Shown here is a 52-nucleotide RNA sequence from Piscinibacter sp. HJYY11, a member of the family "L17-Actino-Proteobacteria ribosomal protein leader". Pairs were carried over by alignment from the consensus structure, which is taken from published work.
RNA sequence: ACAGGGCUGAUCACAGCCCGGUGCACCCGGCAGUACCUGAUACGGCUGCCGG
Numbered sequence: 001a002c003a004g005g006g007c008u009g010a011u012c013a014c015a016g017c018c019c020g021g022u023g024c025a026c027c028c029g030g031c032a033g034u035a036c037c038u039g040a041u042a043c044g045g046c047u048g049c050c051g052g
Stems, first nucleotide, its partner, number of pairs: 001022002004019006026052001028051007

It scores 35 bits against the family's covariance model.